[Rfam]
RNA sequence: AUUCCGGUUGAUCCUGCCGGAGGCCACUGCUAUCGGGGUCCGACUAAGCCAUGCGAGUCAAGGGGCUCCUUCGGGAGCACCGGCGCACGGCUCAGUAACACGUGGCUAACCUACCCUCGGGAGGGGGAUAACCUCGGGAAACUGAGGCUAAUCCCCCAUAGGGGAGGAGGUCUGGAACGAUCCCUCCCCGAAAGCUCCGGCGCCCGAGGAUGGGGCUGCGGCGGAUUAGGUAGUUGGUGGGGUAACGGCCCACCAAGCCGACGAUCCGUACGGGCCCUGAGAGGGGGAGCCCGGAGAUGGACACUGAGACACGGGUCCAGGCCCUACGGGGCGCAGCAGGCGCGAAACCUCCGCAAUGCACGAAAGUGCGACGGGGGGACCCCGAGUGCCAUCCCAACGGGAUGGCUUUUCCGGAGUGUAAACAGCUCCGGGAAUAAGGGCUGGGCAAGUCCGGUGCCAGCAGCCGCGGUAAUACCGGCGGCCCAAGUGGUGGCCACUAUUAUUG
Numbered sequence: 001a002u003u004c005c006g007g008u009u010g011a012u013c014c015u016g017c018c019g020g021a022g023g024c025c026a027c028u029g030c031u032a033u034c035g036g037g038g039u040c041c042g043a044c045u046a047a048g049c050c051a052u053g054c055g056a057g058u059c060a061a062g063g064g065g066c067u068c069c070u071u072c073g074g075g076a077g078c079a080c081c082g083g084c085g086c087a088c089g090g091c092u093c094a095g096u097a098a099c100a101c102g103u104g105g106c107u108a109a110c111c112u113a114c115c116c117u118c119g120g121g122a123g124g125g126g127g128a129u130a131a132c133c134u135c136g137g138g139a140a141a142c143u144g145a146g147g148c149u150a151a152u153c154c155c156c157c158a159u160a161g162g163g164g165a166g167g168a169g170g171u172c173u174g175g176a177a178c179g180a181u182c183c184c185u186c187c188c189c190g191a192a193a194g195c196u197c198c199g200g201c202g203c204c205c206g207a208g209g210a211u212g213g214g215g216c217u218g219c220g221g222c223g224g225a226u227u228a229g230g231u232a233g234u235u236g237g238u239g240g241g242g243u244a245a246c247g248g249c250c251c252a253c254c255a256a257g258c259c260g261a262c263g264a265u266c267c268g269u270a271c272g273g274g275c276c277c278u279g280a281g282a283g284g285g286g287g288a289g290c291c292c293g294g295a296g297a298u299g300g301a302c303a304c305u306g307a308g309a310c311a312c313g314g315g316u317c318c319a320g321g322c323c324c325u326a327c328g329g330g331g332c333g334c335a336g337c338a339g340g341c342g343c344g345a346a347a348c349c350u351c352c353g354c355a356a357u358g359c360a361c362g363a364a365a366g367u368g369c370g371a372c373g374g375g376g377g378g379a380c381c382c383c384g385a386g387u388g389c390c391a392u393c394c395c396a397a398c399g400g401g402a403u404g405g406c407u408u409u410u411c412c413g414g415a416g417u418g419u420a421a422a423c424a425g426c427u428c429c430g431g432g433a434a435u436a437a438g439g440g441c442u443g444g445g446c447a448a449g450u451c452c453g454g455u456g457c458c459a460g461c462a463g464c465c466g467c468g469g470u471a472a473u474a475c476c477g478g479c480g481g482c483c484c485a486a487g488u489g490g491u492g493g494c495c496a497c498u499a500u501u502a503u504u505g
Base pairs, nucleotide, nucleotide: 004020005019006018007017008016022495023494024493025492026491027490028489029488030487031486033385034384035383036382037381038380039379040378041377042343048341049340050339052338053337054336057084058083059082062081063080066077067076068075069074091296092295093294101220102219103218104217105216106215107214110213111212115209116208117207118206119205120204121203123157124156125155126154132147133146134145135144136143137142162188163187164186165185166184167183169181171180172179194201195200222268223267224266229259230258231257234256235255236254237253238252239251240250241249271293272292273291274290275286276285277284278283298319299318300317301316302315321332322331323330324329349375351374352373353372357370358369359368360367361366388406389405390404391403392402393401394400395399411431412430413429414428415427416426417425438484439483440482441481442480443479451478452477453476454475460467461466
Dot-bracket structure: ...(((((.......))))).((((((((((.((((((((((.....(((.(((..(((..((..((((....))))..)))))......(((.......(((((((..((...(((((((.((((.....((((((....))))))......))))....((((((.(.((......))).)))))).....((....)).)))))))..))))))))).(((....(((..((((((((.......)))))))))))......)))..((((((((....))))...))))))).(((((............))))).((((....))))...)))))).).....(.(((...(((((....))))).)))).)))))))))..((((((((...))))))))....(((((((.......)))))))......((((((.......((((.....((....)).......)))))))))).))))))))))..........

Archaeal small subunit ribosomal RNA: a 505-nucleotide part of an RNA from Methanocaldococcus vulcanius. Its Rfam clan is "SSU clan". The sequence is in the family's curated seed alignment. Rfam 15.1 lists 709 matches to the family in 491 species.